[Rfam]
Rfam assigns this 112-nucleotide sequence from Brassica oleracea to the family "Small nucleolar RNA snoR97". A reference for the family is Marker et al. (2002), "Experimental RNomics: identification of 140 candidates for small non-messenger RNAs in the plant Arabidopsis thaliana", Curr Biol. By type it is an H/ACA-box small nucleolar RNA. Rfam links the family to the GO terms nucleolus and RNA processing.

RNA sequence: CUGUCGAGAUUAGUUUUGAAUUUGAUUGAGGAUCUUUGUGUCGCAUAGUGUUUACAUCAGCUUUAUCUCUGCUUCGGCCUUGGGAUGUUAGUUAAACUAGAACACUACAUUA
Numbered sequence: 001c002u003g004u005c006g007a008g009a010u011u012a013g014u015u016u017u018g019a020a021u022u023u024g025a026u027u028g029a030g031g032a033u034c035u036u037u038g039u040g041u042c043g044c045a046u047a048g049u050g051u052u053u054a055c056a057u058c059a060g061c062u063u064u065a066u067c068u069c070u071g072c073u074u075c076g077g078c079c080u081u082g083g084g085a086u087g088u089u090a091g092u093u094a095a096a097c098u099a100g101a102a103c104a105c106u107a108c109a110u111u112a
Base pairs, nucleotide, nucleotide: 047106048105049104050103051102052101053100059093060092061091062090066085067084068083069082